[Rfam]
RNA sequence: AGAGCUUGCUGGGCAAUCGCCUUACUUUGUGAGGAGGAAAGUCCGGGCUCCAUAGAGCAGAGUGCCAGGUAACGCCUGGGGGGCGUGAGCCUACGGAAAGUGCAGCAGAAAGUGUACCGCCUAAGCUAUCUUGUAUAGCCGGUAAGGUUGAAAAGGUGCGGUAAGAGCGCACCGCGCGACUGGCAACAGUUCGUGGCGAUGGUAAACCCCACUCGGAGCAAGACCAAAUAGAAAUCCGAUGGCGUGGCUCGCGCUGGAUUUGGGUAGGUUGCUUGAGCUAGUUGGUGACGGCUAGCCUAGAUGAAUGAUUGUCCUCGACAGAACCCGGCUUACAGGCAAGCUCUUUUU
Numbered sequence: 001a002g003a004g005c006u007u008g009c010u011g012g013g014c015a016a017u018c019g020c021c022u023u024a025c026u027u028u029g030u031g032a033g034g035a036g037g038a039a040a041g042u043c044c045g046g047g048c049u050c051c052a053u054a055g056a057g058c059a060g061a062g063u064g065c066c067a068g069g070u071a072a073c074g075c076c077u078g079g080g081g082g083g084c085g086u087g088a089g090c091c092u093a094c095g096g097a098a099a100g101u102g103c104a105g106c107a108g109a110a111a112g113u114g115u116a117c118c119g120c121c122u123a124a125g126c127u128a129u130c131u132u133g134u135a136u137a138g139c140c141g142g143u144a145a146g147g148u149u150g151a152a153a154a155g156g157u158g159c160g161g162u163a164a165g166a167g168c169g170c171a172c173c174g175c176g177c178g179a180c181u182g183g184c185a186a187c188a189g190u191u192c193g194u195g196g197c198g199a200u201g202g203u204a205a206a207c208c209c210c211a212c213u214c215g216g217a218g219c220a221a222g223a224c225c226a227a228a229u230a231g232a233a234a235u236c237c238g239a240u241g242g243c244g245u246g247g248c249u250c251g252c253g254c255u256g257g258a259u260u261u262g263g264g265u266a267g268g269u270u271g272c273u274u275g276a277g278c279u280a281g282u283u284g285g286u287g288a289c290g291g292c293u294a295g296c297c298u299a300g301a302u303g304a305a306u307g308a309u310u311g312u313c314c315u316c317g318a319c320a321g322a323a324c325c326c327g328g329c330u331u332a333c334a335g336g337c338a339a340g341c342u343c344u345u346u347u348u
Stems, first nucleotide, its partner, number of pairs: 001344010011333001012313007020034006039331003043328005048218004055250004060214005065079005080094001081092004095209002100207002102203002117147002119143003125139005155173006174197001175195005180189003222270004232261006241255005277296008
The family of this 348-nucleotide sequence from Oleiphilus sp. HI0079 is "Bacterial RNase P class A".
The match comes from Rfam's covariance-model search (326 bits).
Its family is annotated with ribonuclease P activity, dimeric ribonuclease P complex and tRNA processing in the Gene Ontology.
Ribonuclease P (RNase P) is a ubiquitous endoribonuclease, found in archaea, bacteria and eukarya as well as chloroplasts and mitochondria.
The family's consensus secondary structure is taken from published work.
Taxonomically the source falls in Oleiphilus (Bacteria, Pseudomonadati, Pseudomonadota, Oleiphilaceae).